Shown here is a 140-nucleotide RNA from Lupinus albus, a member of the family "mir-172 microRNA precursor family". Rfam's curators write: mir-172 has been experimentally verified in Arabidopsis thaliana. The family's consensus secondary structure was predicted with PFOLD.

RNA sequence: UUGUUUGCAGAUGUAGCAUCAUCAAGAUUCACAUGCAAUGCUGGUGGGUGGGACUAUUAAGCAAUCUAAGUGCUAGCUAGCUCUUCCAAUCCAUUGGCUUUGUGAAGUGAGAAUCUUGAUGAUGCUGCAUCAGCCAUAAA
Numbered sequence: 001u002u003g004u005u006u007g008c009a010g011a012u013g014u015a016g017c018a019u020c021a022u023c024a025a026g027a028u029u030c031a032c033a034u035g036c037a038a039u040g041c042u043g044g045u046g047g048g049u050g051g052g053a054c055u056a057u058u059a060a061g062c063a064a065u066c067u068a069a070g071u072g073c074u075a076g077c078u079a080g081c082u083c084u085u086c087c088a089a090u091c092c093a094u095u096g097g098c099u100u101u102g103u104g105a106a107g108u109g110a111g112a113a114u115c116u117u118g119a120u121g122a123u124g125c126u127g128c129a130u131c132a133g134c135c136a137u138a139a140a
Base pairs, nucleotide, nucleotide: 010131011130012129013128014127015126016125017124018123019122020121021120022119023118024117025116026115027114028113029112030111032109033108